This 162-nucleotide RNA sequence from Diatraea saccharalis belongs to the Rfam family "U1 spliceosomal RNA". The family's RNA type in Rfam is spliceosomal small nuclear RNA. Rfam's curators write: U1 is a small nuclear RNA (snRNA) component of the spliceosome (involved in pre-mRNA splicing). Its 5' end forms complementary base pairs with the 5' splice junction, thus defining the 5' donor site of an intron. There are significant differences in sequence and secondary structure between metazoan and yeast U1 snRNAs, the latter being much longer (568 nucleotides as compared to 164 nucleotides in human). Nevertheless, secondary structure predictions suggest that all U1 snRNAs share a 'common core' consisting of helices I, II, the proximal region of III, and IV. This family does not contain the larger yeast sequences. Clan: U1 clan. Rfam 15.1 lists 40,184 matches to the family in 1,499 species. Gene Ontology terms of the family: U1 snRNP, pre-mRNA 5'-splice site binding and mRNA 5'-splice site recognition. It scores 155 bits against the family's covariance model. The base pairs follow the family's consensus structure, which is taken from published work. A reference for the family is Charenton et al. (2019), "Mechanism of 5' splice site transfer for human spliceosome activation", Science.
RNA sequence: AUACUUACCUGGCGUAGGGGAUACCGUGAUCAAGAAGGCGGUUCCCCCAGGGCGAGGCUCCACCAUUGCACUGCGGUGGGGUUGACCCUUGCGAUUAUCCCUAAUGUGGAUAACUCGGACGCGUAAUUUUUGGUAGUGGGGACUGCGUACGCGCCGUCCCCC
Numbered sequence: 001a002u003a004c005u006u007a008c009c010u011g012g013c014g015u016a017g018g019g020g021a022u023a024c025c026g027u028g029a030u031c032a033a034g035a036a037g038g039c040g041g042u043u044c045c046c047c048c049a050g051g052g053c054g055a056g057g058c059u060c061c062a063c064c065a066u067u068g069c070a071c072u073g074c075g076g077u078g079g080g081g082u083u084g085a086c087c088c089u090u091g092c093g094a095u096u097a098u099c100c101c102u103a104a105u106g107u108g109g110a111u112a113a114c115u116c117g118g119a120c121g122c123g124u125a126a127u128u129u130u131u132g133g134u135a136g137u138g139g140g141g142a143c144u145g146c147g148u149a150c151g152c153g154c155c156g157u158c159c160c161c162c
Stems, first nucleotide, its partner, number of pairs: 012122004017047005023042005049090004054086001056083003060079005092117003095113003099109002138161005145154003